[Rfam]
RNA: c-di-GMP-I riboswitch aptamer
Organism: Desulfotomaculum copahuensis
RNA sequence: CAAAUCCAAAGGCAACCUUUCCGAAAGGGGAGGAGCGCAAAGCCACGGGCCUAAAACGGGUGUGCCCCGUUACGGCGGCCGGGCUGCAUUA
Numbered sequence: 001c002a003a004a005u006c007c008a009a010a011g012g013c014a015a016c017c018u019u020u021c022c023g024a025a026a027g028g029g030g031a032g033g034a035g036c037g038c039a040a041a042g043c044c045a046c047g048g049g050c051c052u053a054a055a056a057c058g059g060g061u062g063u064g065c066c067c068c069g070u071u072a073c074g075g076c077g078g079c080c081g082g083g084c085u086g087c088a089u090u091a
Base pairs, nucleotide, nucleotide: 012038013037017032018031019030020029021028022027041085042084043083044082046081047080048079049076050075051074056070057069058068059067